[Rfam]
RNA: L4-Archaeoglobi ribosomal protein leades
Organism: Haloarcula pellucida
RNA sequence: CUGAUGGGCGCGUCCGGGUCAAUUGCGGCAUGCAACACCCGAUCUCCCUCCCCGUUCCAGACGGUCUGGACGUGGGUCAGGGGGAGCGCGUGACCGUCAG
Numbered sequence: 001c002u003g004a005u006g007g008g009c010g011c012g013u014c015c016g017g018g019u020c021a022a023u024u025g026c027g028g029c030a031u032g033c034a035a036c037a038c039c040c041g042a043u044c045u046c047c048c049u050c051c052c053c054g055u056u057c058c059a060g061a062c063g064g065u066c067u068g069g070a071c072g073u074g075g076g077u078c079a080g081g082g083g084g085a086g087c088g089c090g091u092g093a094c095c096g097u098c099a100g
Stems, first nucleotide, its partner, number of pairs: 001100005008091006015041004023035005043085007052076002